[Rfam]
RNA sequence: GGGAGCGACUUGGCUUCGACAGGAGUAAGUCUGCUUAGAUGGCAUGUCGCUUUGGGCAAAGCGUAAAAAGCCCAAAUAAAAUUAAACGCAAACAACGUUAAAUUCGCUCCUGCUUACGCUAAAGCUGCGUAAGUUCAGUUGAGCCUGAAAUUUAAGUCAUACUAUCUAGCUUAAUUUUCGGUCAUUUUUGAUAGUGUAGCCUUGCGUUUGACAAGCGUUGAGGUGAAAUAAGGUCUUAGCCUUGCUUUUGAGUUUUGGAAGAUGAGCGAAGUAGGGUGAAGUAGUCAUCUUUGCUAAGCAUGUAGAGGUCUUUGUGGGAUUAUUUUUGGACAGGGGUUCGAUUCCCCUCGCUUCCACCA
Numbered sequence: 001g002g003g004a005g006c007g008a009c010u011u012g013g014c015u016u017c018g019a020c021a022g023g024a025g026u027a028a029g030u031c032u033g034c035u036u037a038g039a040u041g042g043c044a045u046g047u048c049g050c051u052u053u054g055g056g057c058a059a060a061g062c063g064u065a066a067a068a069a070g071c072c073c074a075a076a077u078a079a080a081a082u083u084a085a086a087c088g089c090a091a092a093c094a095a096c097g098u099u100a101a102a103u104u105c106g107c108u109c110c111u112g113c114u115u116a117c118g119c120u121a122a123a124g125c126u127g128c129g130u131a132a133g134u135u136c137a138g139u140u141g142a143g144c145c146u147g148a149a150a151u152u153u154a155a156g157u158c159a160u161a162c163u164a165u166c167u168a169g170c171u172u173a174a175u176u177u178u179c180g181g182u183c184a185u186u187u188u189u190g191a192u193a194g195u196g197u198a199g200c201c202u203u204g205c206g207u208u209u210g211a212c213a214a215g216c217g218u219u220g221a222g223g224u225g226a227a228a229u230a231a232g233g234u235c236u237u238a239g240c241c242u243u244g245c246u247u248u249u250g251a252g253u254u255u256u257g258g259a260a261g262a263u264g265a266g267c268g269a270a271g272u273a274g275g276g277u278g279a280a281g282u283a284g285u286c287a288u289c290u291u292u293g294c295u296a297a298g299c300a301u302g303u304a305g306a307g308g309u310c311u312u313u314g315u316g317g318g319a320u321u322a323u324u325u326u327u328g329g330a331c332a333g334g335g336g337u338u339c340g341a342u343u344c345c346c347c348u349c350g351c352u353u354c355c356a357c358c359a
Base pairs, nucleotide, nucleotide: 001355002354003353004352005351006350007349020328021327022326023325024324025323026322027321028320032316033315034314037311038310039309040308043302044301045300046299047298048063049062050061051060052059053074054073055072056071057070119143120142123140124139125138126137127136145181146180147179148178149177150176152174153173154172155171158169159197160196161195162194163193164192165191199224200223201222202221203220204218205217206216210235211234212233239277240276241275242274243273244272245271246270247269253268255266258292259291260290261289263287264286265285332348333347334346335345336344
RNA: transfer-messenger RNA
Organism: Campylobacter coli